[Rfam]
RNA sequence: ACAUGCGCGGCGGGAGAUCUCCACACGUGUGGGGAGCCGAAGGAGCAACACCUCCCGGGAAUCUCUCAGGCCCAAUACCGCUGCGCGCAG
Numbered sequence: 001a002c003a004u005g006c007g008c009g010g011c012g013g014g015a016g017a018u019c020u021c022c023a024c025a026c027g028u029g030u031g032g033g034g035a036g037c038c039g040a041a042g043g044a045g046c047a048a049c050a051c052c053u054c055c056c057g058g059g060a061a062u063c064u065c066u067c068a069g070g071c072c073c074a075a076u077a078c079c080g081c082u083g084c085g086c087g088c089a090g
Stems, first nucleotide, its partner, number of pairs: 006085008020034003036071003039067002043065003049058001